[Rfam]
RNA sequence: UCUUGCGGCCCUUCUUGGGCAUUUCCUCCCUAAAAUUUCAGGCUGCUGGCGACAGUGGCCCUUUUCUUAGGUGCCC
Numbered sequence: 001u002c003u004u005g006c007g008g009c010c011c012u013u014c015u016u017g018g019g020c021a022u023u024u025c026c027u028c029c030c031u032a033a034a035a036u037u038u039c040a041g042g043c044u045g046c047u048g049g050c051g052a053c054a055g056u057g058g059c060c061c062u063u064u065u066c067u068u069a070g071g072u073g074c075c076c
Base pairs, nucleotide, nucleotide: 008020009019010018011017041060042059043058044057045056046055047054048053
Annotation
The family of this 76-nucleotide RNA from Microvirga aerophila is "Makes More Granules Regulator RNA (mmgR)". SuhB later renamed mmgR (makes more granules regulator) was a putative non-coding RNA found multiple times in the Agrobacterium tumefaciens genome and related alpha-proteobacteria. Other non-coding RNAs uncovered in the same analysis include: speF, ybhL, metA, and serC.Several studies inSinorhizobium meliloti showed that suhB element is indeed a non-coding RNA:firstly it was detected on Northern blot and called Sm8RNA, secondly in an RNAseq study referred to as SmelC689.The mutant phenotype's (strain lacking the small RNA) cytoplasm contains higher content of polyhydroxybutyrate (PBH)storage granules than wild type strain. The organism belongs to Microvirga, within Bacteria. Its family is annotated with response to nitrogen compound, protein binding and DNA-templated transcription, termination in the Gene Ontology.